A member of the RNA family "ZMP/ZTP riboswitch aptamer (pfl RNA motif)" from Tepidimonas alkaliphilus, 139 nucleotides long. The match comes from Rfam's covariance-model search (43 bits). The family has 185 seed sequences and 3,295 matches in Rfam 15.1. Taxonomically the source falls in Tepidimonas (Bacteria, Pseudomonadati, Pseudomonadota, Burkholderiales).
RNA sequence: GGGUUGGCGUGCAACUGGCGAUAGGCUCACCGCGUCAUGGCGUUGCCGCCUUCGGGUGAGCCGACGUGGAUCACCACGGGGAAGCGCGCAGCGUGCGGUCAACGCCGCAGCCAUCUAGCCGUUCGCCUGGGCAGCUCGC
Numbered sequence: 001g002g003g004u005u006g007g008c009g010u011g012c013a014a015c016u017g018g019c020g021a022u023a024g025g026c027u028c029a030c031c032g033c034g035u036c037a038u039g040g041c042g043u044u045g046c047c048g049c050c051u052u053c054g055g056g057u058g059a060g061c062c063g064a065c066g067u068g069g070a071u072c073a074c075c076a077c078g079g080g081g082a083a084g085c086g087c088g089c090a091g092c093g094u095g096c097g098g099u100c101a102a103c104g105c106c107g108c109a110g111c112c113a114u115c116u117a118g119c120c121g122u123u124c125g126c127c128u129g130g131g132c133a134g135c136u137c138g139c
Stems, first nucleotide, its partner, number of pairs: 003092001005091001007089006015081002017127005066077004116134001118132003